The family of this 66-nucleotide RNA sequence from Flavonifractor sp. An10 is "Glycine riboswitch aptamer". Rfam links the family to the GO term glycine biosynthetic process. Pairs were carried over by alignment from the consensus structure. From the family's description: This family represents the bacterial glycine riboswitch. The organism belongs to Flavonifractor, within Bacteria. It scores 36 bits against the family's covariance model.
RNA sequence: GACUCUGGAAAGCGGACGGCAGUCCGCGCCGACGGGGGCAAAACUCUCAGGCAACCCAACAGAGGC
Number, nucleotide and partner (000 for none) at each position: 001g066002a000003c064004u063005c062006u061007g060008g000009a000010a000011a000012g000013c026014g025015g024016a023017c000018g000019g000020c000021a000022g000023u016024c015025c014026g013027c000028g052029c051030c050031g048032a047033c000034g000035g046036g045037g044038g000039c000040a000041a000042a000043a000044c037045u036046c035047u032048c031049a000050g030051g029052c028053a000054a000055c000056c000057c000058a000059a000060c007061a006062g005063a004064g003065g000066c001